Rfam assigns this 55-nucleotide RNA sequence from Carpinus fangiana to the family "Plastid-ndhJ 3UTR RNA". For this family Rfam cites "Retrograde signaling in plants: A critical review focusing on the GUN pathway and beyond" (Richter et al., Plant Commun, 2023). Rfam's curators write: Plastid ndhJ is a non-coding RNA (ncRNA) present in plastids. It was identified as a short stem-loop motif in the 3 prime untranslate region (3UTR) of ndhJ gene. It scores 46 bits against the family's covariance model.

RNA sequence: CCAUGAACUAUGUAACACACGUCAUUUAAAUGGGUUCUAUAAAGUCAUUCAGGAG
Numbered sequence: 001c002c003a004u005g006a007a008c009u010a011u012g013u014a015a016c017a018c019a020c021g022u023c024a025u026u027u028a029a030a031u032g033g034g035u036u037c038u039a040u041a042a043a044g045u046c047a048u049u050c051a052g053g054a055g
Stems, first nucleotide, its partner, number of pairs: 017035002020032003